[Rfam]
RNA: L2-Alphaproteobacteria ribosomal protein leader
RNA sequence: UGGGACCUUCGGGGCCCUAUAACCAUGACGGUGCACACUGCACCCGAUAAGCAAAACGGAAGACAUCA
Numbered sequence: 001u002g003g004g005a006c007c008u009u010c011g012g013g014g015c016c017c018u019a020u021a022a023c024c025a026u027g028a029c030g031g032u033g034c035a036c037a038c039u040g041c042a043c044c045c046g047a048u049a050a051g052c053a054a055a056a057c058g059g060a061a062g063a064c065a066u067c068a
Stems, first nucleotide, its partner, number of pairs: 002017003006014003030044005